[Rfam]
RNA sequence: CCUGGUCGGUGAUGAUGCCUUUGUUGGGAGACUGCUGGAUGAGUCCUGCGGAUAUGGGGCUGAGGCCAGGC
Numbered sequence: 001c002c003u004g005g006u007c008g009g010u011g012a013u014g015a016u017g018c019c020u021u022u023g024u025u026g027g028g029a030g031a032c033u034g035c036u037g038g039a040u041g042a043g044u045c046c047u048g049c050g051g052a053u054a055u056g057g058g059g060c061u062g063a064g065g066c067c068a069g070g071c
Stems, first nucleotide, its partner, number of pairs: 001070005
Dot-bracket structure: (((((............................................................))))).

The record is a 71-nucleotide sequence from Cairina moschata, which matches "Small nucleolar RNA SNORD99" in Rfam. The family has 23 seed sequences and 673 matches in Rfam 15.1. It is annotated as a C/D-box small nucleolar RNA. Its Rfam clan is "SNORD58 clan". On this family, see Galardi et al., Mol Cell Biol 2002: "Purified box C/D snoRNPs are able to reproduce site-specific 2'-O-methylation of target RNA in vitro". Gene Ontology terms of the family: RNA processing and nucleolus.